[Rfam]
RNA sequence: GUGGCACUCAAACUGUGGGGGCACUUUUUCUCCCUCGUGAUGAAAAAAAGUGCUGCUACUUUUUGAGUGUCAC
Dot-bracket structure: ...(((((((((..((((.((((((..((...............))..)))))).))))..)))))))))...
The record is a 73-nucleotide RNA from Dipodomys ordii, which matches "mir-290 microRNA precursor family" in Rfam. For this family Rfam cites "Embryonic stem cell-specific MicroRNAs" (Houbaviy et al., Dev Cell, 2003). The family's consensus secondary structure was predicted with RNAalifold. Clan: mir-290 clan. Lineage of the source: Eukaryota > Tetrapoda > Euarchontoglires > Rodentia > Dipodomys.